[Rfam]
RNA: Small nucleolar RNA snR43
Organism: Lachancea thermotolerans
RNA sequence: CCCUCCUAUUUCUGCCCCACGUUCUCUACGCAACCAUAGAAUGAUGGGUUCUACUAACGGAGGAGAGAAAGCCUGUUGACGCGGGAUCCACACUUUUGAUACAACCGUGGAUCCUUGUGUUGCCAGGAUCGUGUGGACGCAUUGAAUGCCUCUGAGAUACCUUCACAGUACUCGGAGAAUCAAGGCCCCACUACAUUU
Numbered sequence: 001c002c003c004u005c006c007u008a009u010u011u012c013u014g015c016c017c018c019a020c021g022u023u024c025u026c027u028a029c030g031c032a033a034c035c036a037u038a039g040a041a042u043g044a045u046g047g048g049u050u051c052u053a054c055u056a057a058c059g060g061a062g063g064a065g066a067g068a069a070a071g072c073c074u075g076u077u078g079a080c081g082c083g084g085g086a087u088c089c090a091c092a093c094u095u096u097u098g099a100u101a102c103a104a105c106c107g108u109g110g111a112u113c114c115u116u117g118u119g120u121u122g123c124c125a126g127g128a129u130c131g132u133g134u135g136g137a138c139g140c141a142u143u144g145a146a147u148g149c150c151u152c153u154g155a156g157a158u159a160c161c162u163u164c165a166c167a168g169u170a171c172u173c174g175g176a177g178a179a180u181c182a183a184g185g186c187c188c189c190a191c192u193a194c195a196u197u198u
Base pairs, nucleotide, nucleotide: 003062004061005060006059016048017047018046019045020043021042022041023040024039025038072127073126074125075124077122078121079120080119081118082117083116084114085113086112087111088110089109090108091107133191134190135189136188139186140185142183143182150177151176152175153174154173158170159169160168